Overview:
Rfam assigns this 336-nucleotide sequence from Otolemur garnettii to the family "Nuclear RNase P".
[Rfam]
RNA sequence: GGCGGAGGGAAGCUCAUCGGUGGGGCUACGAGCUGAGUGCACUGUGUCACUCCACCCCUUUGUCCCUUGGGAAGGUCUGAGACUGGGGCCAGUAAGCGGCCCUAACAGGGCUCUCCCUGAGUCUCGGGGAGGUGAGUUCCCAGAGAGCGGGGCUCCGCGCAAGGUCAGACUGGGCAGGAGAUGCCGUGGACCCACCCCACUCUGGGAUGGGCGCGGCGGAUGCCUCCUUCGCCGGAGCUUGGAACAGACUCACGGCCAGCGAAGUGAGUUCAAUGGCUGAGGUGAGGUACCCCGCACGGGGGCUUCAUAACCCAAUUCAGACUACUCUCCCCCGUC
Numbered sequence: 001g002g003c004g005g006a007g008g009g010a011a012g013c014u015c016a017u018c019g020g021u022g023g024g025g026c027u028a029c030g031a032g033c034u035g036a037g038u039g040c041a042c043u044g045u046g047u048c049a050c051u052c053c054a055c056c057c058c059u060u061u062g063u064c065c066c067u068u069g070g071g072a073a074g075g076u077c078u079g080a081g082a083c084u085g086g087g088g089c090c091a092g093u094a095a096g097c098g099g100c101c102c103u104a105a106c107a108g109g110g111c112u113c114u115c116c117c118u119g120a121g122u123c124u125c126g127g128g129g130a131g132g133u134g135a136g137u138u139c140c141c142a143g144a145g146a147g148c149g150g151g152g153c154u155c156c157g158c159g160c161a162a163g164g165u166c167a168g169a170c171u172g173g174g175c176a177g178g179a180g181a182u183g184c185c186g187u188g189g190a191c192c193c194a195c196c197c198c199a200c201u202c203u204g205g206g207a208u209g210g211g212c213g214c215g216g217c218g219g220a221u222g223c224c225u226c227c228u229u230c231g232c233c234g235g236a237g238c239u240u241g242g243a244a245c246a247g248a249c250u251c252a253c254g255g256c257c258a259g260c261g262a263a264g265u266g267a268g269u270u271c272a273a274u275g276g277c278u279g280a281g282g283u284g285a286g287g288u289a290c291c292c293c294g295c296a297c298g299g300g301g302g303c304u305u306c307a308u309a310a311c312c313c314a315a316u317u318c319a320g321a322c323u324a325c326u327c328u329c330c331c332c333c334g335u336c
Stems, first nucleotide, its partner, number of pairs: 001336004008330003013281004018276001022067004035052005040046001077320005087257004098112005113131006132253007152238006282308007
Rfam describes the family as follows. Ribonuclease P (RNase P) is a ubiquitous endoribonuclease, found in archaea, bacteria and eukarya as well as chloroplasts and mitochondria. Its best characterised activity is the generation of mature 5'-ends of tRNAs by cleaving the 5'-leader elements of precursor-tRNAs. Cellular RNase Ps are ribonucleoproteins. RNA from bacterial RNase Ps retains its catalytic activity in the absence of the protein subunit, i.e. it is a ribozyme. Isolated eukaryotic and archaeal RNase P RNA has not been shown to retain its catalytic function, but is still essential for the catalytic activity of the holoenzyme. Although the archaeal and eukaryotic holoenzyme s have a much greater protein content than the bacterial ones, the RNA cores from all the three lineages are homologous -- helices corresponding to P1, P2, P3, P4, and P10/11 are common to all cellular RNase P RNAs. Yet, there is considerable sequence variation, particularly among the eukaryotic RNAs. Rfam links the family to the GO terms ribonuclease P complex, ribonuclease P activity and tRNA processing. The family's RNA type in Rfam is ribozyme. Lineage of the source: Eukaryota > Eutheria > Boreoeutheria > Primates > Otolemur.